[Rfam]
RNA sequence: GUUCACAUCUUACCGGGCAGCAUUAGACUUGGAUGAAAGAGCCUCUAAUACUGUCAGGUAAAGAUGUCGUC
Numbered sequence: 001g002u003u004c005a006c007a008u009c010u011u012a013c014c015g016g017g018c019a020g021c022a023u024u025a026g027a028c029u030u031g032g033a034u035g036a037a038a039g040a041g042c043c044u045c046u047a048a049u050a051c052u053g054u055c056a057g058g059u060a061a062a063g064a065u066g067u068c069g070u071c
Stems, first nucleotide, its partner, number of pairs: 003069001005067005010061005016055005022049006
Background:
Shown here is a 71-nucleotide sequence from Thrips palmi, a member of the family "mir-8/mir-141/mir-200 microRNA precursor family". A reference for the family is Lagos-Quintana et al. (2003), "New microRNAs from mouse and human", RNA. The family is grouped with related families in Rfam's "mir-8 microRNA precursor clan". Taxonomically the source falls in Thrips (Eukaryota, Opisthokonta, Panarthropoda, Thripinae). The family's consensus secondary structure was predicted with RNAalifold. Gene Ontology terms of the family: RISC complex and miRNA-mediated post-transcriptional gene silencing.